This 577-nucleotide part of an RNA from Methanoregula boonei belongs to the Rfam family "Archaeal small subunit ribosomal RNA".
Its Rfam clan is "SSU clan".
A search with the family's covariance model found it, with a score of 1579 bits.
Gene Ontology terms of the family: structural constituent of ribosome and ribosome.
On this family, see Yusupov et al., Science 2001: "Crystal structure of the ribosome at 5.5 A resolution".
Pairs were carried over by alignment from the consensus structure, which is taken from published work.
RNA sequence: UGGCGGGGGAGCACCACAACGGGUGGAGCCUGCGGUUUAAUCGGACUCAACGCCGGGAAACUCACCGGACAAGACAGCUGAAUGAUAGUCGGGCUGAAGACUCUACUUGACUAGCUGAGAGGAGGUGCAUGGCCGUCGUCAGUUCGUACUGUGAAGCAUCCUGUUAAGUCAGGCAACGAGCGAGACCCACGCCAACAGUUGCUAGCUCGUCCUCCGGGAUGGAGAGGACACUGUUGGGACCGCCUCUGCUAAAGAGGAGGAAGGAAUGGGCAACGGUAGGUCAGCAUGCCCCGAAUUGUCCGGGCUACACGCGGGCUACAAUGGGUGGGACAAUGGGUAUCGACACCGAAAGGUGAAGGCAAUCUCCUAAACCCAUCCUUAGUUCGGAUUGUGGGCUGCAACUCGCCCACAUGAAGCUGGAAUCCGUAGUAAUCGUGUUUCAAAAUAGCACGGUGAAUAUGUCCCUGCUCCUUGCACACACCGCCCGUCAAACCACCCGAGUGAGGUCUUGAUGAGGUUGUCGUUUUCUGCGGCGAUCGAAUCUAGGUUUUGCAAGGGGGGUUAAGUCGUAACAAGG
Numbered sequence: 001u002g003g004c005g006g007g008g009g010a011g012c013a014c015c016a017c018a019a020c021g022g023g024u025g026g027a028g029c030c031u032g033c034g035g036u037u038u039a040a041u042c043g044g045a046c047u048c049a050a051c052g053c054c055g056g057g058a059a060a061c062u063c064a065c066c067g068g069a070c071a072a073g074a075c076a077g078c079u080g081a082a083u084g085a086u087a088g089u090c091g092g093g094c095u096g097a098a099g100a101c102u103c104u105a106c107u108u109g110a111c112u113a114g115c116u117g118a119g120a121g122g123a124g125g126u127g128c129a130u131g132g133c134c135g136u137c138g139u140c141a142g143u144u145c146g147u148a149c150u151g152u153g154a155a156g157c158a159u160c161c162u163g164u165u166a167a168g169u170c171a172g173g174c175a176a177c178g179a180g181c182g183a184g185a186c187c188c189a190c191g192c193c194a195a196c197a198g199u200u201g202c203u204a205g206c207u208c209g210u211c212c213u214c215c216g217g218g219a220u221g222g223a224g225a226g227g228a229c230a231c232u233g234u235u236g237g238g239a240c241c242g243c244c245u246c247u248g249c250u251a252a253a254g255a256g257g258a259g260g261a262a263g264g265a266a267u268g269g270g271c272a273a274c275g276g277u278a279g280g281u282c283a284g285c286a287u288g289c290c291c292c293g294a295a296u297u298g299u300c301c302g303g304g305c306u307a308c309a310c311g312c313g314g315g316c317u318a319c320a321a322u323g324g325g326u327g328g329g330a331c332a333a334u335g336g337g338u339a340u341c342g343a344c345a346c347c348g349a350a351a352g353g354u355g356a357a358g359g360c361a362a363u364c365u366c367c368u369a370a371a372c373c374c375a376u377c378c379u380u381a382g383u384u385c386g387g388a389u390u391g392u393g394g395g396c397u398g399c400a401a402c403u404c405g406c407c408c409a410c411a412u413g414a415a416g417c418u419g420g421a422a423u424c425c426g427u428a429g430u431a432a433u434c435g436u437g438u439u440u441c442a443a444a445a446u447a448g449c450a451c452g453g454u455g456a457a458u459a460u461g462u463c464c465c466u467g468c469u470c471c472u473u474g475c476a477c478a479c480a481c482c483g484c485c486c487g488u489c490a491a492a493c494c495a496c497c498c499g500a501g502u503g504a505g506g507u508c509u510u511g512a513u514g515a516g517g518u519u520g521u522c523g524u525u526u527u528c529u530g531c532g533g534c535g536a537u538c539g540a541a542u543c544u545a546g547g548u549u550u551u552g553c554a555a556g557g558g559g560g561g562u563u564a565a566g567u568c569g570u571a572a573c574a575a576g577g
Stems, first nucleotide, its partner, number of pairs: 001478002003475003007472007016462002020426005025319001027317008035308002041056004065303007075117004080111001087107003091103003121292002124290004130286002132281003135277004142181006149156002160173004187269003192237007202226002206224003209220004240260002243257005323378007335366003340359002344355004385416001390411007432454008481576001483573001486569002489566001491563004496558003501553009511543003516538009
Dot-bracket structure: (((((.(((((((..((..((((((.((((((((((....((((........))))........(((((((...((((.(......(((.(((.......))).)))...)..))))...((.((((..(((((((((...((((((.((....))...((((......))))..)))))).....(((..(((((((...((..(((((((....)))).)))))....)))))))..((.(((((.....))))).))......)))....)))).)))...))))))))....)))))))...)).)))))))).)...(((((((.....(((..((..((((....))))..))....))).....)))))))......(....(((((((........)))))))....).....))))).....((((((((.......))))))))......))...)))))))))).))..(.(..((.(.((((.(((..(((((((((.(((..(((((((((.....)))))))))..))).)))))))))..))).))))..).))...)..).